[Rfam]
This 140-nucleotide RNA sequence from Camelus dromedarius belongs to the Rfam family "Small nucleolar RNA SNORA4". ACA4 is a member of the H/ACA class of snoRNA that guide the sites of modification of uridines to pseudouridines.

RNA sequence: CUACCAAAAGUUUGUAUUGGGGGAAGGUUUUUAAAUAACCUUUACCAACUUAGGGCUAUUUGGGAGAAUAAAGAAAAGACCACACUCCACAGUGGGCUAUACCAUUUAGUAUAGUCCAUUACUAUUUUGUGGCCUACAUU
Numbered sequence: 001c002u003a004c005c006a007a008a009a010g011u012u013u014g015u016a017u018u019g020g021g022g023g024a025a026g027g028u029u030u031u032u033a034a035a036u037a038a039c040c041u042u043u044a045c046c047a048a049c050u051u052a053g054g055g056c057u058a059u060u061u062g063g064g065a066g067a068a069u070a071a072a073g074a075a076a077a078g079a080c081c082a083c084a085c086u087c088c089a090c091a092g093u094g095g096g097c098u099a100u101a102c103c104a105u106u107u108a109g110u111a112u113a114g115u116c117c118a119u120u121a122c123u124a125u126u127u128u129g130u131g132g133c134c135u136a137c138a139u140u
Base pairs, nucleotide, nucleotide: 004063005062006061007060008059012058014056015055019049022046023045025043026040027039028038029037077135078134080132081131082130083129084128091120092119093118094117095116096115097114098113099112100111101110102109
Description:
The family is grouped with related families in Rfam's "SNORA4 clan". The match comes from Rfam's covariance-model search (135 bits).